RNA sequence: AAAGUUGUUGCAGUUAAAAAGCUCGUAGUUGGAUCUGGGUCGCAUGGCUACGUGCCGUCGCUCACUUUCUCGGUUGGCUGUUAAGGCCCUGGGUGUGGUGGGUCGGUGUCGUGGUUGUGUGGUCUUUCUGCCGUGUCUGGUUCACAAGUGUUGACUAGGCCUUCGGGUUUGUCGGCAUGCUCCCAAAUGCCUUUAAACCGGUGUCGGGGGCGGACGGCACGUUUACUUCGAACAAAUUUGAGUCCUCAAAUCAGGCCCAUUUGCCCGAAAAUUCUUGCAUGGAAUAAUGGAAUAGGACUUCGGUUCUAUUUUGUUGGUUUUCGGAUCCGAAGUAAUGGUUAAGAGGGACAGACCGGGGGCAUUUGUAUGGCAGUAUUCGAGGUGAAAUUCUUGGAUCACCGCCAGACAAACUACAGCGAAAGCAUUUGUCAAGGAUAUUUUCAUUGAUCUGGAGCAAAGACGGUCAGAUACCGUCCUAGUUCUAACCAUAAACGAUGCCAACUGACGAUCCGCGGUGGUUCUUUUAUUGUCCCCGCGGGCAGUCCCCGAGAAACCUUCAAGUCUUUGGGCUCCG
Number, nucleotide and partner (000 for none) at each position: 001a000002a000003a000004g000005u000006u000007g000008u000009u000010g000011c574012a000013g572014u000015u000016a000017a000018a000019a571020a000021g455022c454023u453024c452025g000026u000027a000028g448029u447030u446031g000032g000033a000034u000035c000036u000037g000038g000039g000040u000041c000042g000043c000044a000045u000046g000047g000048c000049u000050a000051c000052g000053u000054g000055c000056c000057g000058u000059c000060g000061c000062u000063c000064a000065c000066u000067u000068u000069c000070u000071c000072g000073g000074u000075u000076g000077g000078c000079u000080g000081u000082u000083a000084a000085g000086g000087c000088c000089c000090u000091g000092g000093g000094u000095g000096u000097g000098g000099u000100g000101g000102g000103u000104c000105g000106g000107u000108g000109u000110c000111g000112u000113g000114g000115u000116u000117g000118u000119g000120u000121g000122g000123u000124c000125u000126u000127u000128c000129u000130g000131c000132c000133g000134u000135g000136u000137c000138u000139g000140g000141u000142u000143c000144a000145c000146a000147a000148g000149u000150g000151u000152u000153g000154a000155c000156u000157a000158g000159g000160c000161c000162u000163u000164c000165g000166g000167g000168u000169u000170u000171g000172u000173c000174g000175g000176c000177a000178u000179g000180c000181u000182c000183c000184c000185a000186a000187a000188u000189g000190c000191c000192u000193u000194u000195a000196a000197a000198c000199c000200g000201g000202u000203g000204u000205c000206g000207g000208g000209g000210g000211c000212g000213g000214a000215c000216g000217g000218c000219a000220c000221g000222u000223u000224u000225a000226c000227u000228u000229c000230g000231a000232a000233c000234a000235a000236a000237u000238u000239u000240g000241a000242g000243u000244c000245c000246u000247c000248a000249a000250a000251u000252c000253a000254g000255g000256c000257c000258c000259a000260u000261u000262u000263g000264c000265c000266c000267g000268a000269a000270a000271a000272u000273u000274c000275u000276u000277g000278c000279a000280u000281g000282g000283a000284a000285u000286a000287a000288u000289g000290g000291a000292a000293u000294a000295g000296g000297a000298c000299u000300u000301c000302g000303g000304u000305u000306c000307u000308a000309u000310u000311u000312u000313g000314u000315u000316g000317g000318u000319u000320u000321u000322c000323g000324g000325a000326u000327c000328c000329g000330a000331a000332g000333u000334a000335a000336u000337g000338g000339u000340u000341a000342a000343g000344a000345g442346g441347g440348a439349c000350a000351g436352a000353c434354c433355g000356g000357g000358g430359g429360c428361a427362u000363u000364u408365g407366u000367a000368u404369g403370g402371c401372a000373g399374u398375a000376u000377u000378c000379g390380a389381g388382g000383u000384g000385a000386a000387a000388u381389u380390c379391u000392u000393g000394g000395a000396u000397c000398a374399c373400c000401g371402c370403c369404a368405g000406a000407c365408a364409a000410a000411c000412u000413a000414c000415a000416g423417c422418g000419a000420a000421a000422g417423c416424a000425u000426u000427u361428g360429u359430c358431a000432a000433g354434g353435a000436u351437a000438u000439u348440u347441u346442c345443a000444u000445u000446g030447a029448u028449c000450u000451g000452g024453a023454g022455c021456a000457a000458a000459g475460a474461c473462g472463g000464u000465c000466a000467g000468a000469u000470a000471c000472c462473g461474u460475c459476c000477u000478a000479g000480u000481u000482c000483u000484a000485a000486c000487c000488a000489u000490a000491a000492a000493c000494g000495a000496u000497g570498c569499c568500a000501a562502c561503u000504g544505a543506c542507g000508a000509u539510c538511c537512g536513c535514g534515g533516u000517g000518g531519u000520u529521c000522u000523u000524u000525u000526a000527u000528u000529g520530u000531c518532c000533c515534c514535g513536c512537g511538g510539g509540c000541a000542g506543u505544c504545c000546c000547c000548g555549a000550g000551a000552a000553a000554c000555c548556u000557u000558c000559a000560a000561g502562u501563c000564u000565u000566u000567g000568g499569g498570c497571u019572c013573c000574g011
A member of the RNA family "Eukaryotic small subunit ribosomal RNA" from Paragonimus westermani, 574 nucleotides of a longer RNA. Rfam 15.1 lists 75,755 matches to the family in 2,556 species. The organism belongs to Paragonimus, within Eukaryota.